[Rfam]
This 160-nucleotide RNA from Capsicum baccatum belongs to the Rfam family "U1 spliceosomal RNA". Rfam's curators write: U1 is a small nuclear RNA (snRNA) component of the spliceosome (involved in pre-mRNA splicing). Its 5' end forms complementary base pairs with the 5' splice junction, thus defining the 5' donor site of an intron. There are significant differences in sequence and secondary structure between metazoan and yeast U1 snRNAs, the latter being much longer (568 nucleotides as compared to 164 nucleotides in human). The source organism's lineage runs through Eukaryota, Embryophyta, Spermatophyta, eudicotyledons and Capsicum. Gene Ontology terms of the family: U1 snRNP, pre-mRNA 5'-splice site binding and mRNA 5'-splice site recognition.
RNA sequence: AUACUUAUCUGGACGGGGUCAAUGGGCGAUCAACAAGGCUCAUGUCCUAGGCUGGUGACCACCAUUGCACACUCCGGAGGGGUGCUGCCUAAUGUCAUCCCAAGUGGUCGAUCCUACAUCAUAAUUUGUGAAAGUGGGGCCUUUGUUAAACGCCGCCCCU
Number, nucleotide and partner (000 for none) at each position: 001a000002u000003a000004c000005u000006u000007a000008u000009c000010u000011g000012g120013a119014c000015g117016g048017g047018g046019u000020c044021a043022a000023u042024g041025g040026g039027c038028g000029a000030u000031c000032a000033a000034c000035a000036a000037g000038g027039c026040u025041c024042a023043u021044g020045u000046c018047c017048u016049a090050g089051g088052c087053u000054g000055g085056u084057g083058a000059c081060c080061a000062c077063c076064a000065u000066u000067g000068c000069a000070c000071a000072c000073u000074c000075c000076g063077g062078a000079g000080g060081g059082g000083u057084g056085c055086u000087g052088c051089c050090u049091a000092a115093u000094g113095u111096c110097a000098u000099c107100c106101c000102a000103a000104g000105u000106g100107g099108u000109c000110g096111a095112u000113c094114c000115u092116a000117c015118a000119u013120c012121a000122u000123a000124a000125u000126u000127u000128g000129u000130g000131a000132a000133a000134g000135u000136g159137g158138g157139g156140c155141c000142u000143u000144u152145g151146u150147u000148a000149a000150a146151c145152g144153c000154c000155g140156c139157c138158c137159c136160u000